[Rfam]
RNA sequence: AUAUAUCAUUGUAUUUUGCCUCGUAUAAUUGUGGAGAUAUGGUCCACGAGUUUCUACCGGACGGCCGUAAACUGUUCGACUACGGGGGAAACACCUGGGAUG
Numbered sequence: 001a002u003a004u005a006u007c008a009u010u011g012u013a014u015u016u017u018g019c020c021u022c023g024u025a026u027a028a029u030u031g032u033g034g035a036g037a038u039a040u041g042g043u044c045c046a047c048g049a050g051u052u053u054c055u056a057c058c059g060g061a062c063g064g065c066c067g068u069a070a071a072c073u074g075u076u077c078g079a080c081u082a083c084g085g086g087g088g089a090a091a092c093a094c095c096u097g098g099g100a101u102g
Base pairs, nucleotide, nucleotide: 019087020086021085022084023083024082025081029049030048031047032046033045034044035043058078059077060076061075062074063073064072
Background:
The record is a 102-nucleotide sequence from Halothermothrix orenii, which matches "Purine riboswitch aptamer" in Rfam. The sequence is in the family's curated seed alignment. Its family is annotated with purine nucleobase biosynthetic process in the Gene Ontology.